[Rfam]
RNA sequence: CUGCUACCAAGUAAGCCAAACCAGUCCCUUUCUGCACAGGGGCCUUGUCUGCAAUGACCGUGAGCUGCAGCCUACUUGGGAGUGCAUUCAACCUUUGCCUACAGGGGUUGCCCUAAGGAACCUUGGAGACUGUU
Numbered sequence: 001c002u003g004c005u006a007c008c009a010a011g012u013a014a015g016c017c018a019a020a021c022c023a024g025u026c027c028c029u030u031u032c033u034g035c036a037c038a039g040g041g042g043c044c045u046u047g048u049c050u051g052c053a054a055u056g057a058c059c060g061u062g063a064g065c066u067g068c069a070g071c072c073u074a075c076u077u078g079g080g081a082g083u084g085c086a087u088u089c090a091a092c093c094u095u096u097g098c099c100u101a102c103a104g105g106g107g108u109u110g111c112c113c114u115a116a117g118g119a120a121c122c123u124u125g126g127a128g129a130c131u132g133u134u
Base pairs, nucleotide, nucleotide: 002053003052004051019048025042026041027040028039078122079121089110090109091108092107093106094105
The family of this 134-nucleotide sequence from Rattus norvegicus is "Small nucleolar RNA SNORA70". The family's RNA type in Rfam is H/ACA-box small nucleolar RNA.